[Rfam]
RNA sequence: ACGUUCGGGUAAUCGCUACAGUUGUUUAACUGUAGAGGAAAGUCCAUGCUCGCACAAUCUGAGAUGAUUGUAGUGUUCGUGCCUAGCGAAACCAUAAGCUAGGGUAGCACAUUCAUGUGUUAACGGCAGGGAAAAAGCCUAAGUCUGUAAGGAUAUGGCUUGAAUACUUUGAAAGUGCCACAGUGACGUAGUCUUGUAAGAAAUUACAAGGGUGGAACGAGGUAAACCCCUCGAGCGAGAAACCCAAAUAAUGGUAGGGGCACCUUCUCUAAGGAAAUGAACGAUGAGAGGGACAGAUUUAUAUCUGUAGAUAGAUGAUUACCACCAAAGUACGAGGUUCAAUACCGAUUGCAGUACAAUGGAACAAAACAUGGCUUACAGAA
Numbered sequence: 001a002c003g004u005u006c007g008g009g010u011a012a013u014c015g016c017u018a019c020a021g022u023u024g025u026u027u028a029a030c031u032g033u034a035g036a037g038g039a040a041a042g043u044c045c046a047u048g049c050u051c052g053c054a055c056a057a058u059c060u061g062a063g064a065u066g067a068u069u070g071u072a073g074u075g076u077u078c079g080u081g082c083c084u085a086g087c088g089a090a091a092c093c094a095u096a097a098g099c100u101a102g103g104g105u106a107g108c109a110c111a112u113u114c115a116u117g118u119g120u121u122a123a124c125g126g127c128a129g130g131g132a133a134a135a136a137g138c139c140u141a142a143g144u145c146u147g148u149a150a151g152g153a154u155a156u157g158g159c160u161u162g163a164a165u166a167c168u169u170u171g172a173a174a175g176u177g178c179c180a181c182a183g184u185g186a187c188g189u190a191g192u193c194u195u196g197u198a199a200g201a202a203a204u205u206a207c208a209a210g211g212g213u214g215g216a217a218c219g220a221g222g223u224a225a226a227c228c229c230c231u232c233g234a235g236c237g238a239g240a241a242a243c244c245c246a247a248a249u250a251a252u253g254g255u256a257g258g259g260g261c262a263c264c265u266u267c268u269c270u271a272a273g274g275a276a277a278u279g280a281a282c283g284a285u286g287a288g289a290g291g292g293a294c295a296g297a298u299u300u301a302u303a304u305c306u307g308u309a310g311a312u313a314g315a316u317g318a319u320u321a322c323c324a325c326c327a328a329a330g331u332a333c334g335a336g337g338u339u340c341a342a343u344a345c346c347g348a349u350u351g352c353a354g355u356a357c358a359a360u361g362g363a364a365c366a367a368a369a370c371a372u373g374g375c376u377u378a379c380a381g382a383a
Stems, first nucleotide, its partner, number of pairs: 004383003007379001008323007016035006040377003044374005049239005054071006077234003081230001082103006104124001105122006125229002128169003136160004143154003175227002177223003192211008243259003263292007293308006325362003330357004